[Rfam]
RNA sequence: UUACUGAACGAAUUAACUAUUGAACUGUUCUGUCCCUCUCUGACAGAGAACAUUUUUUUCUUUGACAGAGAGUGAUAAAACAGUUCAAUAGCUAAUCCGUCCAGUAAC
Numbered sequence: 001u002u003a004c005u006g007a008a009c010g011a012a013u014u015a016a017c018u019a020u021u022g023a024a025c026u027g028u029u030c031u032g033u034c035c036c037u038c039u040c041u042g043a044c045a046g047a048g049a050a051c052a053u054u055u056u057u058u059u060c061u062u063u064g065a066c067a068g069a070g071a072g073u074g075a076u077a078a079a080a081c082a083g084u085u086c087a088a089u090a091g092c093u094a095a096u097c098c099g100u101c102c103a104g105u106a107a108c
Stems, first nucleotide, its partner, number of pairs: 001107006012096004017091012029069006049059002052056001

A member of the RNA family "mir-8517 microRNA precursor family" from Plutella xylostella, 108 nucleotides long. Pairs were carried over by alignment from the consensus structure, which was predicted with RNAalifold. Its family is annotated with miRNA-mediated post-transcriptional gene silencing and RISC complex in the Gene Ontology. A search with the family's covariance model found it, with a score of 109 bits. The organism belongs to Plutella, within Eukaryota.